The family of this 71-nucleotide sequence from Pseudoneobacillus rhizosphaerae is "tRNA". The base pairs follow the family's consensus structure, which is taken from published work.
RNA sequence: AGGGGUAUAGUUUAAAGGUAGAACGAAGGUCUCCAAAACCUUUGGUGUGGGUUCAAUUCCUACUACCCCUG
Numbered sequence: 001a002g003g004g005g006u007a008u009a010g011u012u013u014a015a016a017g018g019u020a021g022a023a024c025g026a027a028g029g030u031c032u033c034c035a036a037a038a039c040c041u042u043u044g045g046u047g048u049g050g051g052u053u054c055a056a057u058u059c060c061u062a063c064u065a066c067c068c069c070u071g
Stems, first nucleotide, its partner, number of pairs: 001070007010024004026042005047063005

By type it is a transfer RNA. NCBI's taxonomy places the organism under Bacteria, Bacillati, Bacilli, Caryophanales, Pseudoneobacillus. The match comes from Rfam's covariance-model search (69 bits). From the family's description: Transfer RNA (tRNA) molecules are approximately 80 nucleotides in length. Their secondary structure includes four short double-helical elements and three loops (D, anti-codon, and T loops).